The family of this 52-nucleotide sequence from Roseburia inulinivorans is "Streptococcus sRNA SpF59 (ldcC RNA)".
For this family Rfam cites "Control of virulence by small RNAs in Streptococcus pneumoniae" (Mann et al., PLoS Pathog, 2012).
The organism belongs to Roseburia inulinivorans, within Bacteria.
The base pairs follow the family's consensus structure, which was predicted with mfold.

RNA sequence: UGACCACUCAGAUUACUGAGGCAGCCUAACGGACAGGCGGGUCGGUUGCCGG
Numbered sequence: 001u002g003a004c005c006a007c008u009c010a011g012a013u014u015a016c017u018g019a020g021g022c023a024g025c026c027u028a029a030c031g032g033a034c035a036g037g038c039g040g041g042u043c044g045g046u047u048g049c050c051g052g
Base pairs, nucleotide, nucleotide: 001044002043003042004041005040007020008019009018010017011016